[Rfam]
RNA sequence: GGAAGUGGUUGAGUGGCUGGUGCCCUCCGGAGGCUUCAAACCUCGGCUGUCUCACCAAAAGUGAGAGGAAGGUUCGAUUCCUUCACACUUCC
Numbered sequence: 001g002g003a004a005g006u007g008g009u010u011g012a013g014u015g016g017c018u019g020g021u022g023c024c025c026u027c028c029g030g031a032g033g034c035u036u037c038a039a040a041c042c043u044c045g046g047c048u049g050u051c052u053c054a055c056c057a058a059a060a061g062u063g064a065g066a067g068g069a070a071g072g073u074u075c076g077a078u079u080c081c082u083u084c085a086c087a088c089u090u091c092c
Base pairs, nucleotide, nucleotide: 001092002091003090004089005088006087007086008084011027012026013025015024016023017022028046030044031043032042033041050066051065052064053063054062069083070082071081072080
RNA: Selenocysteine transfer RNA
Organism: Calditerrivibrio nitroreducens